[Rfam]
RNA sequence: CAACAAACAAAUACGUGACCUCAUAUAAUAUAGGGGAUAGGGCCCAAAAGUUUCUACCUGCUUACCGUAAAUAAGCAGACUAUGAGGGAGAUGGACACAAAU
Numbered sequence: 001c002a003a004c005a006a007a008c009a010a011a012u013a014c015g016u017g018a019c020c021u022c023a024u025a026u027a028a029u030a031u032a033g034g035g036g037a038u039a040g041g042g043c044c045c046a047a048a049a050g051u052u053u054c055u056a057c058c059u060g061c062u063u064a065c066c067g068u069a070a071a072u073a074a075g076c077a078g079a080c081u082a083u084g085a086g087g088g089a090g091a092u093g094g095a096c097a098c099a100a101a102u
Stems, first nucleotide, its partner, number of pairs: 019087007029049001031047001033045003058078007